[Rfam]
Rfam assigns this 135-nucleotide RNA sequence from Gadus morhua to the family "Small nucleolar RNA SNORA57". Rfam's curators write: U99 belongs to the H/ACA class of snoRNAs which are thought to guide the sites of modification of uridines to pseudouridines, the target for this family is unknown. A reference for the family is Vitali et al. (2003), "Identification of 13 novel human modification guide RNAs", Nucleic Acids Res. Taxonomically the source falls in Gadus (Eukaryota, Craniata, Acanthomorphata, Zeiogadaria). Rfam links the family to the GO terms RNA processing and nucleolus. Rfam classes the family as an H/ACA-box small nucleolar RNA.
RNA sequence: CCUCCAUUUCUUGGCAUACACGUGGUGGUUCAGUACUCGUGUUUGUAUGUUUGGAGGUAGAAUGAAGCCAAUGCUAUGUCUUCGGUGCUGGCGUUGUCUCGUAUGCCGGUUCUAUCCUCAAUCGCUGGUACAUAC
Numbered sequence: 001c002c003u004c005c006a007u008u009u010c011u012u013g014g015c016a017u018a019c020a021c022g023u024g025g026u027g028g029u030u031c032a033g034u035a036c037u038c039g040u041g042u043u044u045g046u047a048u049g050u051u052u053g054g055a056g057g058u059a060g061a062a063u064g065a066a067g068c069c070a071a072u073g074c075u076a077u078g079u080c081u082u083c084g085g086u087g088c089u090g091g092c093g094u095u096g097u098c099u100c101g102u103a104u105g106c107c108g109g110u111u112c113u114a115u116c117c118u119c120a121a122u123c124g125c126u127g128g129u130a131c132a133u134a135c
Base pairs, nucleotide, nucleotide: 001057002056003055004054005053015045016044018042019041020040022038024037025036026035069127070126072124073123088109089108090107091106092105093104094103